This 126-nucleotide RNA sequence from Pelosinus fermentans belongs to the Rfam family "FMN riboswitch aptamer (RFN element)". The match comes from Rfam's covariance-model search (122 bits). The base pairs follow the family's consensus structure, which is taken from published work.
RNA sequence: AAAUAUCUUCAGGGCAGGGUUAAAUUCCCGACCGGUGGUAAGCAGAUUCUGCAAGCCCACGAGCCGUAAGGCAGAUUUGGUGUAAUUCCAAAGCCGACAGUAUAGUCUGGAUGUAAGAAGAGAAAG
Dot-bracket structure: ...(.(((((......(((.......))).[[((((((................[[))))..(((....)))...(((((.......)))))]])).(((....]]))).......))))).)...
Numbered sequence: 001a002a003a004u005a006u007c008u009u010c011a012g013g014g015c016a017g018g019g020u021u022a023a024a025u026u027c028c029c030g031a032c033c034g035g036u037g038g039u040a041a042g043c044a045g046a047u048u049c050u051g052c053a054a055g056c057c058c059a060c061g062a063g064c065c066g067u068a069a070g071g072c073a074g075a076u077u078u079g080g081u082g083u084a085a086u087u088c089c090a091a092a093g094c095c096g097a098c099a100g101u102a103u104a105g106u107c108u109g110g111a112u113g114u115a116a117g118a119a120g121a122g123a124a125a126g
Stems, first nucleotide, its partner, number of pairs: 004123001006121005017029003031106002033096002035060004055094002063072003076092005098109003